[Rfam]
RNA sequence: AAACGUUGAAGCAACGACUGUUCCAAGAUGCAGCCUUUGUGGAGUUUUAUAAGGGUUUGACAUAUACCGCAACUUGGAUAGAUUUAUUAAUCGAAAGAAAAUGUCUAUU
Numbered sequence: 001a002a003a004c005g006u007u008g009a010a011g012c013a014a015c016g017a018c019u020g021u022u023c024c025a026a027g028a029u030g031c032a033g034c035c036u037u038u039g040u041g042g043a044g045u046u047u048u049a050u051a052a053g054g055g056u057u058u059g060a061c062a063u064a065u066a067c068c069g070c071a072a073c074u075u076g077g078a079u080a081g082a083u084u085u086a087u088u089a090a091u092c093g094a095a096a097g098a099a100a101a102u103g104u105c106u107a108u109u
Stems, first nucleotide, its partner, number of pairs: 001047004011040004016035001018033004023077004060104003081092004